int-alpA RNA: a 66-nucleotide sequence from Burkholderia pseudomallei. Rfam's curators write: Acidobacteria (1 example), Planctomycetes (1 example), Proteobacteria.

[Rfam]
RNA sequence: GCCGCGCCUAGUUCGACGGGACGAAAACCGGGUGCCCUACCCGGCUGGCGCGGCUCCUGAGUAGGG
Numbered sequence: 001g002c003c004g005c006g007c008c009u010a011g012u013u014c015g016a017c018g019g020g021a022c023g024a025a026a027a028c029c030g031g032g033u034g035c036c037c038u039a040c041c042c043g044g045c046u047g048g049c050g051c052g053g054c055u056c057c058u059g060a061g062u063a064g065g066g
Stems, first nucleotide, its partner, number of pairs: 001054008011022004028044005035066005
The family's consensus secondary structure is taken from published work. NCBI's taxonomy places the organism under Bacteria, Pseudomonadota, Betaproteobacteria, Burkholderiaceae, Burkholderia pseudomallei. The family's RNA type in Rfam is small RNA.